A member of the RNA family "Small nucleolar RNA SNORA57" from Neolamprologus brichardi, 140 nucleotides long. U99 belongs to the H/ACA class of snoRNAs which are thought to guide the sites of modification of uridines to pseudouridines, the target for this family is unknown. The organism belongs to Neolamprologus, within Eukaryota. Rfam links the family to the GO terms nucleolus and RNA processing. Pairs were carried over by alignment from the consensus structure, which was predicted with PFOLD.
[Rfam]
RNA sequence: CCUCCAUUUCUUGGCAUGCAUGUGGUUGUUUAGUACUCAUGUGUGUAAUGUACGGAGGAAAAACAAAGACAGCGCUAUGUCUUCGGUACCGGUGUGUAUUUUGCUGUCUGCCGGUCCUAUCCUCAAUCGCUGUUACAACC
Numbered sequence: 001c002c003u004c005c006a007u008u009u010c011u012u013g014g015c016a017u018g019c020a021u022g023u024g025g026u027u028g029u030u031u032a033g034u035a036c037u038c039a040u041g042u043g044u045g046u047a048a049u050g051u052a053c054g055g056a057g058g059a060a061a062a063a064c065a066a067a068g069a070c071a072g073c074g075c076u077a078u079g080u081c082u083u084c085g086g087u088a089c090c091g092g093u094g095u096g097u098a099u100u101u102u103g104c105u106g107u108c109u110g111c112c113g114g115u116c117c118u119a120u121c122c123u124c125a126a127u128c129g130c131u132g133u134u135a136c137a138a139c140c
Base pairs, nucleotide, nucleotide: 001058002057003056004055005054015045016044017043018042019041020040022038024037025036026035070132071131072130073129074128089114090113091112092111093110094109